[Rfam]
RNA sequence: UUUUUUAUUGGUGAUGGAGUCCACCGUUAAUUGCUUUAUUGCUGAUGACUCCUGGAUUUUU
Numbered sequence: 001u002u003u004u005u006u007a008u009u010g011g012u013g014a015u016g017g018a019g020u021c022c023a024c025c026g027u028u029a030a031u032u033g034c035u036u037u038a039u040u041g042c043u044g045a046u047g048a049c050u051c052c053u054g055g056a057u058u059u060u061u
Base pairs, nucleotide, nucleotide: 010025011024012023013022016052017051018050019049020048021047033042034041
Rfam assigns this 61-nucleotide RNA sequence from Ornatilinea apprima to the family "Fluoride riboswitch aptamer (crcB RNA motif)". It scores 42 bits against the family's covariance model. The family's consensus secondary structure is taken from published work. Taxonomically the source falls in Ornatilinea (Bacteria, Chloroflexota, Anaerolineae, Anaerolineaceae).